[Rfam]
RNA: Iron response element II
Organism: Perca flavescens
RNA sequence: CUAUUAUCUUGGACAGUGAUCCAAAUAGUGA
Numbered sequence: 001c002u003a004u005u006a007u008c009u010u011g012g013a014c015a016g017u018g019a020u021c022c023a024a025a026u027a028g029u030g031a
Stems, first nucleotide, its partner, number of pairs: 002030006009024005014018001